Background: Clostridiales-1 RNA: a 154-nucleotide RNA from Clostridium sp. C105KSO13. Pairs were carried over by alignment from the consensus structure, which is taken from published work.
RNA sequence: UGAUACCAGGGUCAAAAGGUCAUGCGUUUCAUGGUUGCAUGAAAAAGCAUGACUUUGGGACCCGCAAAACAUGAGAAAGUAGCCCGAACAGGGCGGAUUUCGAAUGUUUUGCGGAUUGCGGGAGCACAAAGUGCGUAGCAAUCCGUAGGUAUCC
Numbered sequence: 001u002g003a004u005a006c007c008a009g010g011g012u013c014a015a016a017a018g019g020u021c022a023u024g025c026g027u028u029u030c031a032u033g034g035u036u037g038c039a040u041g042a043a044a045a046a047g048c049a050u051g052a053c054u055u056u057g058g059g060a061c062c063c064g065c066a067a068a069a070c071a072u073g074a075g076a077a078a079g080u081a082g083c084c085c086g087a088a089c090a091g092g093g094c095g096g097a098u099u100u101c102g103a104a105u106g107u108u109u110u111g112c113g114g115a116u117u118g119c120g121g122g123a124g125c126a127c128a129a130a131g132u133g134c135g136u137a138g139c140a141a142u143c144c145g146u147a148g149g150u151a152u153c154c
Stems, first nucleotide, its partner, number of pairs: 002153006010062004016056010027045002029042005065111008075101004082094004113144007124134004
Dot-bracket structure: .((((((..((((..((((((((((.(((((((....))))).)).))))))))))..))))..((((((((..((((...((((.....))))...))))..)))))))).(((((((....((((...))))...)))))))...)))))).
Description:
By type it is a small RNA. Taxonomically the source falls in Clostridium (Bacteria, Clostridia, Eubacteriales, Clostridiaceae).